Source information: This 88-nucleotide sequence from Salipaludibacillus keqinensis belongs to the Rfam family "c-di-GMP-I-GGC riboswitch aptamer". It scores 63 bits against the family's covariance model. The family's consensus secondary structure is taken from published work.
RNA sequence: UCUUUUAUAGGCAAACUCGCUGAAAAGCGGGGACGCAAAGCCUCAGAUCUAACGCGAAGAAGGAGCUAAGAUGGCUGGGCUGCGAAAA
Numbered sequence: 001u002c003u004u005u006u007a008u009a010g011g012c013a014a015a016c017u018c019g020c021u022g023a024a025a026a027g028c029g030g031g032g033a034c035g036c037a038a039a040g041c042c043u044c045a046g047a048u049c050u051a052a053c054g055c056g057a058a059g060a061a062g063g064a065g066c067u068a069a070g071a072u073g074g075c076u077g078g079g080c081u082g083c084g085a086a087a088a
Base pairs, nucleotide, nucleotide: 001088003085004084011036012035016031017030018029019028020027021026034074039081040080041079042078044077045076046075047072048071049070